[Rfam]
RNA sequence: GCCAGAGGUAUUGUAACAUGAAGCAUUGGCCCCUGAAGGGAUUCCGGCUAGUGCUCGUGUAACACUCCCUCCGGCU
Numbered sequence: 001g002c003c004a005g006a007g008g009u010a011u012u013g014u015a016a017c018a019u020g021a022a023g024c025a026u027u028g029g030c031c032c033c034u035g036a037a038g039g040g041a042u043u044c045c046g047g048c049u050a051g052u053g054c055u056c057g058u059g060u061a062a063c064a065c066u067c068c069c070u071c072c073g074g075c076u
Stems, first nucleotide, its partner, number of pairs: 001075003005071004010066001012064003016060004022055010
MIR6145 microRNA precursor family: a 76-nucleotide RNA sequence from Nicotiana attenuata. The base pairs follow the family's consensus structure, which was predicted with RNAalifold. A search with the family's covariance model found it, with a score of 57 bits. Taxonomically the source falls in Nicotiana (Eukaryota, Embryophyta, Spermatophyta, Gunneridae).